[Rfam]
RNA sequence: UGGAUCGAUGAUGACUGCUGGUGGCGUAUGAAUUGUGAAUGAUGAACGCGUGAUUGGAACGCUGAGGUCCAA
Numbered sequence: 001u002g003g004a005u006c007g008a009u010g011a012u013g014a015c016u017g018c019u020g021g022u023g024g025c026g027u028a029u030g031a032a033u034u035g036u037g038a039a040u041g042a043u044g045a046a047c048g049c050g051u052g053a054u055u056g057g058a059a060c061g062c063u064g065a066g067g068u069c070c071a072a
Stems, first nucleotide, its partner, number of pairs: 002070005
RNA: Small nucleolar RNA SNORD113/SNORD114 family